[Rfam]
RNA sequence: CCCCCACUCUCUCCCAACCCUUGUACCAGUGUCAUGUUACUGGAACCCUGGUACAGAGGAUGGAUGAGAAGGAGGCGUGG
Numbered sequence: 001c002c003c004c005c006a007c008u009c010u011c012u013c014c015c016a017a018c019c020c021u022u023g024u025a026c027c028a029g030u031g032u033c034a035u036g037u038u039a040c041u042g043g044a045a046c047c048c049u050g051g052u053a054c055a056g057a058g059g060a061u062g063g064a065u066g067a068g069a070a071g072g073a074g075g076c077g078u079g080g
Stems, first nucleotide, its partner, number of pairs: 010067002012064003019056001022055007
mir-150 microRNA precursor family: an 80-nucleotide RNA sequence from Alligator mississippiensis. The family's consensus secondary structure was predicted with RNAalifold. For this family Rfam cites "Discovering microRNAs from deep sequencing data using miRDeep" (Friedlander et al., Nat Biotechnol, 2008). Gene Ontology terms of the family: RISC complex and miRNA-mediated post-transcriptional gene silencing. NCBI's taxonomy places the organism under Eukaryota, Opisthokonta, Bilateria, Teleostomi, Alligator.